[Rfam]
RNA sequence: ACAAAAUAAGAGGGUGGAACAAUGAAUCCGCUCUCAUUACGCGGUCAAAAGUCUUGGGAGGAUACGGUCCUGGCGCGGUUACUCGCCGCCGCCGUUUAAAAAAAACGGAAGCGGAUCGGACGCGUUCUAGUUGCAAGGCUUCUGCCUUGCUUUUUUUU
Numbered sequence: 001a002c003a004a005a006a007u008a009a010g011a012g013g014g015u016g017g018a019a020c021a022a023u024g025a026a027u028c029c030g031c032u033c034u035c036a037u038u039a040c041g042c043g044g045u046c047a048a049a050a051g052u053c054u055u056g057g058g059a060g061g062a063u064a065c066g067g068u069c070c071u072g073g074c075g076c077g078g079u080u081a082c083u084c085g086c087c088g089c090c091g092c093c094g095u096u097u098a099a100a101a102a103a104a105a106c107g108g109a110a111g112c113g114g115a116u117c118g119g120a121c122g123c124g125u126u127c128u129a130g131u132u133g134c135a136a137g138g139c140u141u142c143u144g145c146c147u148u149g150c151u152u153u154u155u156u157u158u
Stems, first nucleotide, its partner, number of pairs: 003158004011034008040124004051063004066117005072090003075086003092108006133150007
RNA: Alphaproteobacterial sRNA ar9
Organism: Chelativorans sp. BNC1